The family of this 88-nucleotide sequence from Ferrimonas sediminicola is "t44 RNA". The source organism's lineage runs through Bacteria, Gammaproteobacteria, Alteromonadales, Ferrimonadaceae and Ferrimonas. A search with the family's covariance model found it, with a score of 87 bits. The family's consensus secondary structure was predicted with LocARNA.

[Rfam]
Nucleotides: 088
Stems, first nucleotide, its partner, number of pairs: 023078008035069009048060005
Number, partner (000 for none) and nucleotide at each position: 001000g002000u003000u004000a005000a006000a007000u008000u009000u010000u011000u012000a013000u014000u015000a016000a017000a018000c019000c020000a021000c022000a023078c024077a025076c026075g027074u028073a029072u030071c031000g032000g033000c034000a035069c036068a037067u038066g039065g040064u041063c042062c043061g044000g045000g046000g047000u048060g049059c050058c051057c052056u053000c054000c055000a056052g057051g058050g059049g060048u061043c062042g063041g064040g065039u066038c067037a068036u069035g070000g071030g072029a073028u074027a075026c076025g077024u078023g079000g080000a081000g082000g083000c084000u085000u086000a087000a088000c